[Rfam]
RNA: c-di-AMP riboswitch aptamer (ydaO/yuaA leader)
RNA sequence: GUGCGGCUCCCGCCGAGUCCGGAACGCCCUCGUGGCCGCCCGGAGCCGGGGACCCACCGACCUUUGGGGUGAAUCGGUCCAACUCCCUCAGGGGACAAGGACCGUAGGGCAAACCUUCCGAAGCACACGCCCGAACCCGACAGCUAACUCGGUAGGCGGAGCACGGAAGGAGU
Numbered sequence: 001g002u003g004c005g006g007c008u009c010c011c012g013c014c015g016a017g018u019c020c021g022g023a024a025c026g027c028c029c030u031c032g033u034g035g036c037c038g039c040c041c042g043g044a045g046c047c048g049g050g051g052a053c054c055c056a057c058c059g060a061c062c063u064u065u066g067g068g069g070u071g072a073a074u075c076g077g078u079c080c081a082a083c084u085c086c087c088u089c090a091g092g093g094g095a096c097a098a099g100g101a102c103c104g105u106a107g108g109g110c111a112a113a114c115c116u117u118c119c120g121a122a123g124c125a126c127a128c129g130c131c132c133g134a135a136c137c138c139g140a141c142a143g144c145u146a147a148c149u150c151g152g153u154a155g156g157c158g159g160a161g162c163a164c165g166g167a168a169g170g171a172g173u
Base pairs, nucleotide, nucleotide: 011158012157013156014155018044019043020042021041022040045153046152047151048150049149050148055066056065067138068137069136075104076103077102078101079100080099107132108131109130110129